[Rfam]
RNA sequence: AGGUAGAUGCACCCUGACGAUAUCUCAGCUCUCCGCCUUCGGGUGGGGAGCUUUUUUUU
Numbered sequence: 001a002g003g004u005a006g007a008u009g010c011a012c013c014c015u016g017a018c019g020a021u022a023u024c025u026c027a028g029c030u031c032u033c034c035g036c037c038u039u040c041g042g043g044u045g046g047g048g049a050g051c052u053u054u055u056u057u058u059u
Stems, first nucleotide, its partner, number of pairs: 002013003028051010
RNA: Nitrogen stress-induced RNA 1